[Rfam]
RNA sequence: GCCCAUCGUCGCAGUCUACGUCGACGGGUGGUCUGCUGGGGAGUCGCCCGUACGGCACGGGGUGGCAGGGACGAGAGGA
Numbered sequence: 001g002c003c004c005a006u007c008g009u010c011g012c013a014g015u016c017u018a019c020g021u022c023g024a025c026g027g028g029u030g031g032u033c034u035g036c037u038g039g040g041g042a043g044u045c046g047c048c049c050g051u052a053c054g055g056c057a058c059g060g061g062g063u064g065g066c067a068g069g070g071a072c073g074a075g076a077g078g079a
Stems, first nucleotide, its partner, number of pairs: 001029004006024003010020002031072004036068002043066007
Rfam assigns this 79-nucleotide RNA sequence to the family "aspS RNA". By type it is a cis-regulatory element.